The family of this 136-nucleotide RNA from Symbiobacterium thermophilum is "Molybdenum/Tungsten riboswitch aptamer (Moco RNA motif)". Rfam 15.1 lists 1,248 matches to the family in 836 species. The source organism's lineage runs through Bacteria, Eubacteriales, Symbiobacteriaceae, Symbiobacterium and Symbiobacterium thermophilum. Pairs were carried over by alignment from the consensus structure, which is taken from published work.
[Rfam]
RNA sequence: GAUGUGAUCACGUCCCGAGUCAUGCGACCUGUACCCGAUGGGGUAUGGUCGCCUGACCGGUCCCGGUCGUACCGGGCCAGGGUUGUCGGGGAAACCUGGCGGCCUCCCGUUGGAAAGGGGCGGAACUGCGGGAGAU
Numbered sequence: 001g002a003u004g005u006g007a008u009c010a011c012g013u014c015c016c017g018a019g020u021c022a023u024g025c026g027a028c029c030u031g032u033a034c035c036c037g038a039u040g041g042g043g044u045a046u047g048g049u050c051g052c053c054u055g056a057c058c059g060g061u062c063c064c065g066g067u068c069g070u071a072c073c074g075g076g077c078c079a080g081g082g083u084u085g086u087c088g089g090g091g092a093a094a095c096c097u098g099g100c101g102g103c104c105u106c107c108c109g110u111u112g113g114a115a116a117g118g119g120g121c122g123g124a125a126c127u128g129c130g131g132g133a134g135a136u
Base pairs, nucleotide, nucleotide: 003130004129006127011122012121013120014119015118016117019057020056021055022054024052025051026050027049028048029047033044034043035042036041062076063075064074065073066072080105081104082103083102084101085100086099087098088097089096090095106113107112